[Rfam]
RNA sequence: GUCGUCGCGAGGCGGGGUCUAAAGGAAGCCCGAGCCGAAACCUGUACCGAGGGACACGAACCGUGUAAGAGGCCGGAUGGAUAUGGGAGGGCCUGCCGUGGAAGGCGAAGACCCCGUCCGGGCCGCCAAGGCAUCCGUCGCAUGACCGGGUCGUCCUGGAUGGGGGCUUUGC
Numbered sequence: 001g002u003c004g005u006c007g008c009g010a011g012g013c014g015g016g017g018u019c020u021a022a023a024g025g026a027a028g029c030c031c032g033a034g035c036c037g038a039a040a041c042c043u044g045u046a047c048c049g050a051g052g053g054a055c056a057c058g059a060a061c062c063g064u065g066u067a068a069g070a071g072g073c074c075g076g077a078u079g080g081a082u083a084u085g086g087g088a089g090g091g092c093c094u095g096c097c098g099u100g101g102a103a104g105g106c107g108a109a110g111a112c113c114c115c116g117u118c119c120g121g122g123c124c125g126c127c128a129a130g131g132c133a134u135c136c137g138u139c140g141c142a143u144g145a146c147c148g149g150g151u152c153g154u155c156c157u158g159g160a161u162g163g164g165g166g167c168u169u170u171g172c
Stems, first nucleotide, its partner, number of pairs: 002015005030171001032169001035166002040161001042159003046154002049151001061150002065146002072143001076139007085113002091106004
Dot-bracket structure: .(((((....)))))..............(.(..((...(.(((.((.(...........((..((.....(...(((((((..((....((((........)))).....))...................)))))))...).))..))).))..))).)...))..).).